[Rfam]
RNA sequence: CACUCCUGUUUCUGCUCUGCACUCAUGCCCAUUGAGUGUUGGAUUCUGUUUAAUGGAGAAGAAUAAGCUCGUCAACGGGUCAAUGAAAUUUUGUAACCUUCGCUGAUACUUUUGACGGGAUCGUGCUGUCAGUAGUUCGUGGAAGGCAUUACCCUUUUUGGGACCAAUGCCGGGCUGCUGUAUCUACAUUU
Numbered sequence: 001c002a003c004u005c006c007u008g009u010u011u012c013u014g015c016u017c018u019g020c021a022c023u024c025a026u027g028c029c030c031a032u033u034g035a036g037u038g039u040u041g042g043a044u045u046c047u048g049u050u051u052a053a054u055g056g057a058g059a060a061g062a063a064u065a066a067g068c069u070c071g072u073c074a075a076c077g078g079g080u081c082a083a084u085g086a087a088a089u090u091u092u093g094u095a096a097c098c099u100u101c102g103c104u105g106a107u108a109c110u111u112u113u114g115a116c117g118g119g120a121u122c123g124u125g126c127u128g129u130c131a132g133u134a135g136u137u138c139g140u141g142g143a144a145g146g147c148a149u150u151a152c153c154c155u156u157u158u159u160g161g162g163a164c165c166a167a168u169g170c171c172g173g174g175c176u177g178c179u180g181u182a183u184c185u186a187c188a189u190u191u
Stems, first nucleotide, its partner, number of pairs: 003058004016043004020038006068119008077110002080106003084102004125184001127182002131179005145171005153162003
Shown here is a 191-nucleotide sequence from Metschnikowia bicuspidata, a member of the family "Small nucleolar RNA snR43". NCBI's taxonomy places the organism under Eukaryota, Opisthokonta, Saccharomycotina, Metschnikowia, Metschnikowia bicuspidata var. bicuspidata. Its family is annotated with nucleolus and RNA processing in the Gene Ontology. Clan: SNORA9 clan.